[Rfam]
RNA sequence: CCCACCUGAAGGUGCCUAUAUACUGGACAGGGUCCAGAUGGCCCUAAAGGAUUCCUCGACUCUAACCUGAAAAGGCGAGCCUGAGAUGACAGGGUGGUUUUUAUGGAUGUCUUUUGUCCACCCGUUCACGUCCUCCGCAAUUCUUGCUACAAGAUGGAGAGAUUACAAAAACUGGUCCUCGUU
Numbered sequence: 001c002c003c004a005c006c007u008g009a010a011g012g013u014g015c016c017u018a019u020a021u022a023c024u025g026g027a028c029a030g031g032g033u034c035c036a037g038a039u040g041g042c043c044c045u046a047a048a049g050g051a052u053u054c055c056u057c058g059a060c061u062c063u064a065a066c067c068u069g070a071a072a073a074g075g076c077g078a079g080c081c082u083g084a085g086a087u088g089a090c091a092g093g094g095u096g097g098u099u100u101u102u103a104u105g106g107a108u109g110u111c112u113u114u115u116g117u118c119c120a121c122c123c124g125u126u127c128a129c130g131u132c133c134u135c136c137g138c139a140a141u142u143c144u145u146g147c148u149a150c151a152a153g154a155u156g157g158a159g160a161g162a163u164u165a166c167a168a169a170a171a172c173u174g175g176u177c178c179u180c181g182u183u
Stems, first nucleotide, its partner, number of pairs: 007047001010045003014042003053089002055085004060079002066077001068073001106177003109172002112170006131162002133159004142154004
Rfam assigns this 183-nucleotide part of an RNA from Fusarium duplospermum to the family "Ascomycota telomerase RNA". The literature on the family includes a 2013 paper in Nucleic Acids Res by Qi et al., "The common ancestral core of vertebrate and fungal telomerase RNAs". Clan: Telomerase clan. Rfam links the family to the GO terms telomerase activity, telomerase catalytic core complex and telomere maintenance via telomerase. By type it is a non-coding RNA gene. The family has 4 seed sequences and 475 matches in Rfam 15.1. The pairing is the family consensus, mapped onto this sequence. The match comes from Rfam's covariance-model search (343 bits).